Shown here is a 57-nucleotide RNA from Candidatus Phycosocius bacilliformis, a member of the family "terC RNA".
The organism belongs to Candidatus Phycosocius, within Bacteria.
The family's RNA type in Rfam is cis-regulatory element.
A search with the family's covariance model found it, with a score of 52 bits.
[Rfam]
RNA sequence: CGUGUGGACCGGGCCCCUCUGACGACUCCCUGCCGGGUCGUGAUGUCGGCCACACCG
Numbered sequence: 001c002g003u004g005u006g007g008a009c010c011g012g013g014c015c016c017c018u019c020u021g022a023c024g025a026c027u028c029c030c031u032g033c034c035g036g037g038u039c040g041u042g043a044u045g046u047c048g049g050c051c052a053c054a055c056c057g
Stems, first nucleotide, its partner, number of pairs: 006051002009049004022041007